About this RNA:
This 126-nucleotide RNA from Lachnospiraceae bacterium OF09-33XD belongs to the Rfam family "FMN riboswitch aptamer (RFN element)". The source organism's lineage runs through Bacteria, Bacillati, Bacillota, Clostridia and Lachnospiraceae.
[Rfam]
Nucleotides: 126
Stems, first nucleotide, its partner, number of pairs: 004123001006121005017029003031106002033095002035048004043093002052070002075091005097109003
Number, partner (000 for none) and nucleotide at each position: 001000g002000g003000a004123a005000a006121u007120c008119u009118u010117c011000a012000g013000g014000g015000c016000g017029g018028g019027g020000u021000g022000u023000a024000a025000u026000u027019c028018c029017c030000c031106a032105c033095u034094g035048g036047c037046g038045g039000u040000a041000u042000a043093g044092u045038c046037c047036g048035c049000g050000a051000c052070c053069c054000g055000c056000u057000g058000c059000a060000g061000c062000c063000a064000g065000c066000a067000g068000c069053g070052g071000c072000u073000g074000a075091a076090c077089c078088g079087g080000u081000g082000u083000a084000a085000c086000u087079c088078c089077g090076g091075u092044a093043c094034c095033a096000a097109c098108a099107g100000u101000u102000a103000a104000a105032g106031u107099c108098u109097g110000g111000a112000u113000g114000g115000a116000a117010g118009a119008a120007g121006a122000a123004u124000c125000a126000u